[Rfam]
The record is a 79-nucleotide RNA from Echeneis naucrates, which matches "mir-219 microRNA precursor family" in Rfam. The match comes from Rfam's covariance-model search (64 bits). For this family Rfam cites "Vertebrate microRNA genes" (Lim et al., Science, 2003). NCBI's taxonomy places the organism under Eukaryota, Teleostomi, Osteoglossocephalai, Acanthomorphata, Echeneis. Its family is annotated with RISC complex and miRNA-mediated post-transcriptional gene silencing in the Gene Ontology.
RNA sequence: UCUGGAGUUGAUUGUCCAAACGCAAUUCUUGUAUGACUUCUCCAAACUUAGGAGUUGUGGAUGGACAUCAUGCCCCCGA
Numbered sequence: 001u002c003u004g005g006a007g008u009u010g011a012u013u014g015u016c017c018a019a020a021c022g023c024a025a026u027u028c029u030u031g032u033a034u035g036a037c038u039u040c041u042c043c044a045a046a047c048u049u050a051g052g053a054g055u056u057g058u059g060g061a062u063g064g065a066c067a068u069c070a071u072g073c074c075c076c077c078g079a
Stems, first nucleotide, its partner, number of pairs: 002078001004076002007073001009070004014066005021059011